[Rfam]
RNA sequence: CGAAUCGGAUAAGUGUCUUCGGACACGAAACUCGUCUGCAAUCCCGGCAUCACCGCAUCGCGGUGUGACGACUCUCCCAAAUGCUGCUUCGCAGCAGCAUCUUC
Numbered sequence: 001c002g003a004a005u006c007g008g009a010u011a012a013g014u015g016u017c018u019u020c021g022g023a024c025a026c027g028a029a030a031c032u033c034g035u036c037u038g039c040a041a042u043c044c045c046g047g048c049a050u051c052a053c054c055g056c057a058u059c060g061c062g063g064u065g066u067g068a069c070g071a072c073u074c075u076c077c078c079a080a081a082u083g084c085u086g087c088u089u090c091g092c093a094g095c096a097g098c099a100u101c102u103u104c
Base pairs, nucleotide, nucleotide: 013026014025015024016023017022032071033070034069035068036067051065052064053063054062055061056060082099083098084097085096086095087094